[Rfam]
RNA sequence: UUCUUAUCAAGAGAAGCUGAGGGAAAUGGCCCAAUGAUGCUUCAGCAACCUUCUGUCCUAUACAGAAAAGGUGCUAAAUCCAUCGGGAGUAAAUCUUCUGAUCGAUAAGAC
Numbered sequence: 001u002u003c004u005u006a007u008c009a010a011g012a013g014a015a016g017c018u019g020a021g022g023g024a025a026a027u028g029g030c031c032c033a034a035u036g037a038u039g040c041u042u043c044a045g046c047a048a049c050c051u052u053c054u055g056u057c058c059u060a061u062a063c064a065g066a067a068a069a070g071g072u073g074c075u076a077a078a079u080c081c082a083u084c085g086g087g088a089g090u091a092a093a094u095c096u097u098c099u100g101a102u103c104g105a106u107a108a109g110a111c
Base pairs, nucleotide, nucleotide: 002110003109004108005107006106007105008104013043014042015041016040017039021032022031023030026083027082028081029080044075045074046073047072049071050070051067052066053065054064084100085099086098087097088096089095